[Rfam]
RNA sequence: GGAGGAGAGGCAGGUCCGGUGAUCUGUCCGGACUUCAAAUCCGGGUGGGGCCGUGAGACGGUCCCAGGUGGGUUCGACCCCCACUCUCCUCC
Number, nucleotide and partner (000 for none) at each position: 001g092002g091003a090004g089005g088006a087007g086008a085009g084010g000011c026012a025013g024014g023015u022016c021017c000018g000019g000020u000021g016022a015023u014024c013025u012026g011027u045028c044029c043030g042031g041032a040033c000034u000035u000036c000037a000038a000039a000040u032041c031042c030043g029044g028045g027046u000047g065048g064049g063050g062051c061052c000053g000054u000055g000056a000057g000058a000059c000060g000061g051062u050063c049064c048065c047066a000067g000068g000069u083070g082071g081072g080073u000074u000075c000076g000077a000078c000079c000080c072081c071082c070083a069084c009085u008086c007087u006088c005089c004090u003091c002092c001